[Rfam]
RNA sequence: UGAGCGAACUGUGCUGAAGGAACUCGGCAAAUUGCCUCCGUAACUUCGGGAGAAGGAGGCCUUCAUAUCGGGCAACCGGUAUGGAGGGGCACAGACCAGGGGGUGGCGACUGUUUAGCAAAAACACAGGGCUCUGCGAAGCCGUAAGGCGACGUAUAGGGUCUGACGCCUGCCCGGUGCCGGAAGGUUAAAAGGAGGGGUGCAAGCUCCGAAUUGAAGCCCCGGUAAACGGCGGCCGUAACUAUAACGGUCCUAAGGUAGCGAAAUUCCUUGUCGGGUAAGUUCCGACCUGCACGAAUGGCGUAACGACUUCCCCGCUGUCUCCAGCACAGGCUCA
Numbered sequence: 001u002g003a004g005c006g007a008a009c010u011g012u013g014c015u016g017a018a019g020g021a022a023c024u025c026g027g028c029a030a031a032u033u034g035c036c037u038c039c040g041u042a043a044c045u046u047c048g049g050g051a052g053a054a055g056g057a058g059g060c061c062u063u064c065a066u067a068u069c070g071g072g073c074a075a076c077c078g079g080u081a082u083g084g085a086g087g088g089g090c091a092c093a094g095a096c097c098a099g100g101g102g103g104u105g106g107c108g109a110c111u112g113u114u115u116a117g118c119a120a121a122a123a124c125a126c127a128g129g130g131c132u133c134u135g136c137g138a139a140g141c142c143g144u145a146a147g148g149c150g151a152c153g154u155a156u157a158g159g160g161u162c163u164g165a166c167g168c169c170u171g172c173c174c175g176g177u178g179c180c181g182g183a184a185g186g187u188u189a190a191a192a193g194g195a196g197g198g199g200u201g202c203a204a205g206c207u208c209c210g211a212a213u214u215g216a217a218g219c220c221c222c223g224g225u226a227a228a229c230g231g232c233g234g235c236c237g238u239a240a241c242u243a244u245a246a247c248g249g250u251c252c253u254a255a256g257g258u259a260g261c262g263a264a265a266u267u268c269c270u271u272g273u274c275g276g277g278u279a280a281g282u283u284c285c286g287a288c289c290u291g292c293a294c295g296a297a298u299g300g301c302g303u304a305a306c307g308a309c310u311u312c313c314c315c316g317c318u319g320u321c322u323c324c325a326g327c328a329c330a331g332g333c334u335c336a
Stems, first nucleotide, its partner, number of pairs: 001336004009331008018322003035059005044049001060087012088092001100315004105310002107307002111125003128163008136153001140149003166302004171232003176229002178225005185220003191214002196209005233251006252256001262289001272288006
Shown here is a 336-nucleotide part of an RNA from Methylobrevis albus, a member of the family "Bacterial large subunit ribosomal RNA". It scores 2721 bits against the family's covariance model. Rfam 15.1 lists 51,934 matches to the family in 10,816 species.